[Rfam]
RNA: U1A polyadenylation inhibition element (PIE)
Organism: Salvelinus namaycush
RNA sequence: UUUAAAAGCAUUGCACCCAGGGUCUGUUUCGUCCAGACAUUGUACCUGGAGCUUUUAUGUUUGAUUAAAAUGUGUG
Numbered sequence: 001u002u003u004a005a006a007a008g009c010a011u012u013g014c015a016c017c018c019a020g021g022g023u024c025u026g027u028u029u030c031g032u033c034c035a036g037a038c039a040u041u042g043u044a045c046c047u048g049g050a051g052c053u054u055u056u057a058u059g060u061u062u063g064a065u066u067a068a069a070a071u072g073u074g075u076g
Base pairs, nucleotide, nucleotide: 005055006054007053008052009051017049018048019047020046022038023037024036025035026034